[Rfam]
RNA: Plastid-psbN 5UTR RNA
RNA sequence: AAAAACGGCCAUCACAGGGGUAGUCCCCCAGCCUGGAGCCACUUUACCAUACUCAGAAUUC
Numbered sequence: 001a002a003a004a005a006c007g008g009c010c011a012u013c014a015c016a017g018g019g020g021u022a023g024u025c026c027c028c029c030a031g032c033c034u035g036g037a038g039c040c041a042c043u044u045u046a047c048c049a050u051a052c053u054c055a056g057a058a059u060u061c
Stems, first nucleotide, its partner, number of pairs: 017045005023039002026036002